Shown here is a 118-nucleotide sequence from Arthrobacter sp. NIO-1057, a member of the family "SAM (S-adenosyl methionine) riboswitch aptamer". NCBI's taxonomy places the organism under Bacteria, Bacillati, Actinomycetota, Actinomycetes, Arthrobacter. It scores 85 bits against the family's covariance model.
[Rfam]
RNA sequence: AAUCAAGAGCAUCAGCUAAGAGCCCUGGCUUGCUGAUCGGCAACCCUCUCAACGGUAGUGGGGUGCUCCAGGUGAGGAUUCGGUUCUGCACUAAAUGGUGUCGGAACAAGUACCGCGC
Number, nucleotide and partner (000 for none) at each position: 001a080002a079003u078004c077005a000006a000007g000008a000009g038010c000011a037012u036013c035014a034015g033016c032017u000018a000019a000020g000021a030022g029023c000024c000025c000026u000027g000028g000029c022030u021031u000032g016033c015034u014035g013036a012037u011038c009039g067040g066041c065042a000043a000044c063045c062046c061047u000048c058049u057050c000051a000052a000053c000054g000055g000056u000057a049058g048059u000060g000061g046062g045063g044064u000065g041066c040067u039068c000069c000070a000071g000072g000073u000074g000075a000076g000077g004078a003079u002080u001081c000082g000083g107084u106085u105086c104087u103088g102089c100090a099091c098092u097093a000094a000095a000096u000097g092098g091099u090100g089101u000102c088103g087104g086105a085106a084107c083108a000109a000110g000111u000112a000113c000114c000115g000116c000117g000118c000